This 54-nucleotide sequence from Coregonus sp. 'balchen' belongs to the Rfam family "UnaL2 LINE 3' element". NCBI's taxonomy places the organism under Eukaryota, Craniata, Teleostomi, Neopterygii, Coregonus. Rfam describes the family as follows. The eel long interspersed element (LINE) UnaL2 and its partner short interspersed element (SINE) share a conserved 3' tail containing a stem-loop that is critical for their retrotransposition. Presumably, the first step of retrotransposition is the recognition of their 3' tails by UnaL2-encoded reverse transcriptase. The solution structure of a 17-nucleotide RNA derived from the 3' tail of UnaL2 was determined by NMR. A search with the family's covariance model found it, with a score of 62 bits.

RNA sequence: AAUGUAUGUAACUGUAAGUCGCUCUGGAUAAAAGCGUCUGCUAAAUGACUAAAA
Numbered sequence: 001a002a003u004g005u006a007u008g009u010a011a012c013u014g015u016a017a018g019u020c021g022c023u024c025u026g027g028a029u030a031a032a033a034g035c036g037u038c039u040g041c042u043a044a045a046u047g048a049c050u051a052a053a054a
Base pairs, nucleotide, nucleotide: 013043014041015040016039020036021035022034023033025031